[Rfam]
RNA sequence: UGGUGGCAAUGAUGAUUUUUGCAUUUAUUGUUCACCUGACAGUAUAUGAAGGUGUUCAGUCACUACCUCAUCUGAUGCCAUCC
Number, nucleotide and partner (000 for none) at each position: 001u000002g082003g081004u080005g079006g078007c077008a000009a000010u000011g000012a000013u000014g000015a000016u000017u000018u000019u000020u000021g000022c000023a000024u000025u000026u000027a000028u000029u000030g000031u000032u000033c000034a000035c000036c000037u000038g000039a000040c000041a000042g000043u000044a000045u000046a000047u000048g000049a000050a000051g000052g000053u000054g000055u000056u000057c000058a000059g000060u000061c000062a000063c000064u000065a000066c000067c000068u000069c000070a000071u000072c000073u000074g000075a000076u000077g007078c006079c005080a004081u003082c002083c000
A member of the RNA family "Small nucleolar RNA SNORD11B" from Neotoma lepida, 83 nucleotides long.